Description: tRNA: a 73-nucleotide sequence from Niastella yeongjuensis. A search with the family's covariance model found it, with a score of 62 bits. The source organism's lineage runs through Bacteria, Pseudomonadati, Bacteroidota, Chitinophagia and Niastella. Rfam classes the family as a transfer RNA.
RNA sequence: UGGCCUGUAGCUCAAUGAUUGGAGCAAGUGCCUUAUACGCACAAGGUUACCGGUUCGAGCCCGGUCAGGCCAA
Numbered sequence: 001u002g003g004c005c006u007g008u009a010g011c012u013c014a015a016u017g018a019u020u021g022g023a024g025c026a027a028g029u030g031c032c033u034u035a036u037a038c039g040c041a042c043a044a045g046g047u048u049a050c051c052g053g054u055u056c057g058a059g060c061c062c063g064g065u066c067a068g069g070c071c072a073a
Base pairs, nucleotide, nucleotide: 001072002071003070004069005068006067007066010025011024012023013022028042029041030040031039049065050064051063052062053061